[Rfam]
RNA sequence: GGCAUGUGUGCUGCCGGUUCACCUUUGGUCACUAGUGCAUGUGGUGUCAAAAAAGGCAUAAAUUAAUGUUUUACAGCCUUUUCUUACCCUAGAGUUUAUAUCUUAGGUGUAGGAGCUGUGUACAUAACAGAA
Numbered sequence: 001g002g003c004a005u006g007u008g009u010g011c012u013g014c015c016g017g018u019u020c021a022c023c024u025u026u027g028g029u030c031a032c033u034a035g036u037g038c039a040u041g042u043g044g045u046g047u048c049a050a051a052a053a054a055g056g057c058a059u060a061a062a063u064u065a066a067u068g069u070u071u072u073a074c075a076g077c078c079u080u081u082u083c084u085u086a087c088c089c090u091a092g093a094g095u096u097u098a099u100a101u102c103u104u105a106g107g108u109g110u111a112g113g114a115g116c117u118g119u120g121u122a123c124a125u126a127a128c129a130g131a132a
Stems, first nucleotide, its partner, number of pairs: 002057002005054001007052001009049002012046004017040002020037003068125002071122001072120006082114006088107002092102002
The family of this 132-nucleotide RNA from Mesocricetus auratus is "Small nucleolar RNA SNORA13". NCBI's taxonomy places the organism under Eukaryota, Opisthokonta, Sarcopterygii, Mammalia, Mesocricetus. Rfam's curators write: ACA13 is a member of the H/ACA class of snoRNA that guide the sites of modification of uridines to pseudouridines. By type it is an H/ACA-box small nucleolar RNA. Pairs were carried over by alignment from the consensus structure, which was predicted with CMfinder. The family has 50 seed sequences and 1,034 matches in Rfam 15.1. Its family is annotated with RNA processing and nucleolus in the Gene Ontology. A search with the family's covariance model found it, with a score of 90 bits.